[Rfam]
RNA sequence: AGGCCUUCUGGUGAUGUUUCUGGCCACCCAGGAGGUCUUGAGGAAGAGGUGGACGGCCAGAC
Numbered sequence: 001a002g003g004c005c006u007u008c009u010g011g012u013g014a015u016g017u018u019u020c021u022g023g024c025c026a027c028c029c030a031g032g033a034g035g036u037c038u039u040g041a042g043g044a045a046g047a048g049g050u051g052g053a054c055g056g057c058c059a060g061a062c
Base pairs, nucleotide, nucleotide: 001038002037003036004035005034006033007032008031009030010029011028019061020060021059022058023057024056